[Rfam]
The family of this 76-nucleotide sequence from Dyella dinghuensis is "Fluoride riboswitch aptamer (crcB RNA motif)".
RNA sequence: UGGCAUGUGGGAGAUGGCAUGCCUCCCGUUCCAUUGUGGAACAAACCACCGAAAGGUUGAUGAUGCCUGCACCACC
Dot-bracket structure: .........[[[[..(((((..]]]].....................(((....))).....))))).........